[Rfam]
RNA sequence: AAGGGUCCAACAGGGUCGAUAUGAGAACACGUGUAUAUCACAAUUUCAUCGUUUCUUGACUUUUAAAAAGCCACGUGAAAAAAGUGUUUCAACGUGUGUUCUCAGGUCGCCCCUGUAGGAUCAUU
Numbered sequence: 001a002a003g004g005g006u007c008c009a010a011c012a013g014g015g016u017c018g019a020u021a022u023g024a025g026a027a028c029a030c031g032u033g034u035a036u037a038u039c040a041c042a043a044u045u046u047c048a049u050c051g052u053u054u055c056u057u058g059a060c061u062u063u064u065a066a067a068a069a070g071c072c073a074c075g076u077g078a079a080a081a082a083a084g085u086g087u088u089u090c091a092a093c094g095u096g097u098g099u100u101c102u103c104a105g106g107u108c109g110c111c112c113c114u115g116u117a118g119g120a121u122c123a124u125u
Base pairs, nucleotide, nucleotide: 007119008118011115012114013113014112017109018108019107023103024102025101026100027099028098029097030096031095032094033093034092
This 125-nucleotide RNA sequence from Olea europaea belongs to the Rfam family "MIR398 microRNA precursor family". For this family Rfam cites "Computational identification of plant microRNAs and their targets, including a stress-induced miRNA" (Jones-Rhoades and Bartel, Mol Cell, 2004). Taxonomically the source falls in Olea europaea (Eukaryota, Streptophytina, eudicotyledons, Oleaceae).